[Rfam]
RNA sequence: AGCACUAUUUUUAAACCUGUUGGUGGAAUUUCCUGACCACCAUGGGUUACGCUGUAGUGCAAAAGCAUCUCCUGGCUCUUGAGAAUACAGCUGAUCUUGCUCUGUUCAGCUGAUGCUCCUCUGAAGUUAAGGAACAGAA
Numbered sequence: 001a002g003c004a005c006u007a008u009u010u011u012u013a014a015a016c017c018u019g020u021u022g023g024u025g026g027a028a029u030u031u032c033c034u035g036a037c038c039a040c041c042a043u044g045g046g047u048u049a050c051g052c053u054g055u056a057g058u059g060c061a062a063a064a065g066c067a068u069c070u071c072c073u074g075g076c077u078c079u080u081g082a083g084a085a086u087a088c089a090g091c092u093g094a095u096c097u098u099g100c101u102c103u104g105u106u107c108a109g110c111u112g113a114u115g116c117u118c119c120u121c122u123g124a125a126g127u128u129a130a131g132g133a134a135c136a137g138a139a
Stems, first nucleotide, its partner, number of pairs: 002060007014048004021042006070133004074128004079123001081121002086115002088112004093107002

About this RNA: Shown here is a 139-nucleotide RNA sequence from Corvus brachyrhynchos, a member of the family "Small nucleolar RNA SNORA46". Lineage of the source: Eukaryota > Eumetazoa > Chordata > Dipnotetrapodomorpha > Corvus. Rfam describes the family as follows. ACA46 is a member of the H/ACA class of snoRNA that guide the sites of modification of uridines to pseudouridines. The match comes from Rfam's covariance-model search (100 bits).